[Rfam]
RNA sequence: UUCUUAUCAAGAGAGGUCGAGGGAAUGGCCCUAAGACGCCUCAGCAACCACCAUUUUAUGGAAAGGUGCUAAAUCCACAAGUUGGAAACAACUUGAAAGAUAAGAA
Numbered sequence: 001u002u003c004u005u006a007u008c009a010a011g012a013g014a015g016g017u018c019g020a021g022g023g024a025a026u027g028g029c030c031c032u033a034a035g036a037c038g039c040c041u042c043a044g045c046a047a048c049c050a051c052c053a054u055u056u057u058a059u060g061g062a063a064a065g066g067u068g069c070u071a072a073a074u075c076c077a078c079a080a081g082u083u084g085g086a087a088a089c090a091a092c093u094u095g096a097a098a099g100a101u102a103a104g105a106a
Stems, first nucleotide, its partner, number of pairs: 001106008013042005021031003026077003043070004048066002051061003074098001078095006
Description:
A member of the RNA family "SAM riboswitch aptamer (S box leader)" from Bacillus sp. J14TS2, 106 nucleotides long. Taxonomically the source falls in Bacillus (Bacteria, Bacillota, Caryophanales, Bacillaceae). The base pairs follow the family's consensus structure, which is taken from published work.